This 161-nucleotide RNA from Clostridium tepidiprofundi belongs to the Rfam family "M-box riboswitch aptamer (ykoK leader)". From the family's description: M-box riboswitch, also know as ykoK leader is described as a metaloregulatory RNA that sense divalent metals and function as a genetic control element of genes related to divalent metal transport in bacteria. It was first reported upstream of the B.subtilis ykoK gene and genes with related functions in other bacteria. Gene Ontology terms of the family: regulation of gene expression and response to magnesium ion. The organism belongs to Clostridium tepidiprofundi, within Bacteria.

RNA sequence: UAAAACUUUUGUUAGGUGAGGCUCCUAUAUAGAUAUACGCUGCUGCCCCGAAACAUCGAGAGAUGCCAAUGGGUCAACAGAUACUGCCGUAUUAAGGUUUUAUCUAAUGUAGCUGGAAUAUUUCCAAAGCUAUAUAGUGUCAAAGCUCAACGAAGGUUUCA
Dot-bracket structure: ....(((((((([.(((..(((..((((((((......(((((.((((.....((((....)))).....)))).....((((..(((......])))..))))....))))).(((.....)))....)))))))).)))...)))..))))))))....
Numbered sequence: 001u002a003a004a005a006c007u008u009u010u011g012u013u014a015g016g017u018g019a020g021g022c023u024c025c026u027a028u029a030u031a032g033a034u035a036u037a038c039g040c041u042g043c044u045g046c047c048c049c050g051a052a053a054c055a056u057c058g059a060g061a062g063a064u065g066c067c068a069a070u071g072g073g074u075c076a077a078c079a080g081a082u083a084c085u086g087c088c089g090u091a092u093u094a095a096g097g098u099u100u101u102a103u104c105u106a107a108u109g110u111a112g113c114u115g116g117a118a119u120a121u122u123u124c125c126a127a128a129g130c131u132a133u134a135u136a137g138u139g140u141c142a143a144a145g146c147u148c149a150a151c152g153a154a155g156g157u158u159u160c161a
Stems, first nucleotide, its partner, number of pairs: 005157008013095001015147003020141003025137008039113005045074004054065004080104004086098003115125003